[Rfam]
RNA sequence: ACAGUGCCAUGGACGUCUGAGCUAAGCUUGAUAAAAUUGAGUAUAAAGGCGCAGAUAUCUGCGCCUUUUUU
Numbered sequence: 001a002c003a004g005u006g007c008c009a010u011g012g013a014c015g016u017c018u019g020a021g022c023u024a025a026g027c028u029u030g031a032u033a034a035a036a037u038u039g040a041g042u043a044u045a046a047a048g049g050c051g052c053a054g055a056u057a058u059c060u061g062c063g064c065c066u067u068u069u070u071u
Stems, first nucleotide, its partner, number of pairs: 002019003007012001045068010

A member of the RNA family "Salmonella enterica sRNA STnc40" from Klebsiella indica, 71 nucleotides long. Lineage of the source: Bacteria > Pseudomonadota > Enterobacterales > Enterobacteriaceae > Klebsiella. The family's RNA type in Rfam is small RNA.